[Rfam]
RNA sequence: CUUACCUUGGGAUCUUGUUAAAAUGCGGAUUCUGGUUAAGUGGGUCUGGGAUAGAGUCUGAGAUUCUGCAUUUCUAACAAGCUCCCAAGUGAAGUUGA
Numbered sequence: 001c002u003u004a005c006c007u008u009g010g011g012a013u014c015u016u017g018u019u020a021a022a023a024u025g026c027g028g029a030u031u032c033u034g035g036u037u038a039a040g041u042g043g044g045u046c047u048g049g050g051a052u053a054g055a056g057u058c059u060g061a062g063a064u065u066c067u068g069c070a071u072u073u074c075u076a077a078c079a080a081g082c083u084c085c086c087a088a089g090u091g092a093a094g095u096u097g098a
Stems, first nucleotide, its partner, number of pairs: 003091003009085003014081007021073003025069005031063003

About this RNA: mir-544 microRNA precursor family: a 98-nucleotide sequence from Odobenus rosmarus. Pairs were carried over by alignment from the consensus structure, which was predicted with RNAalifold. A reference for the family is Chiang et al. (2010), "Mammalian microRNAs: experimental evaluation of novel and previously annotated genes", Genes Dev.